[Rfam]
RNA: t44 RNA
RNA sequence: AAAUGUCGGGCUAAAAUUCACACACAUUCCGGCACAUACGAUAGGGUCCCUUGCGGGUUUCAUAUGGGGGAUGUGGAGGCAUAAC
Number, nucleotide and partner (000 for none) at each position: 001a000002a000003a000004u000005g000006u000007c000008g000009g000010g000011c000012u000013a000014a000015a000016a000017u000018u000019c000020a000021c000022a000023c075024a074025c073026a072027u071028u070029c069030c068031g000032g000033c000034a000035c066036a065037u064038a063039c000040g061041a060042u000043a058044g000045g000046g000047u000048c057049c056050c055051u000052u000053g000054c000055g050056g049057g048058u043059u000060u041061c040062a000063u038064a037065u036066g035067g000068g030069g029070g028071a027072u026073g025074u024075g023076g000077a000078g000079g000080c000081a000082u000083a000084a000085c000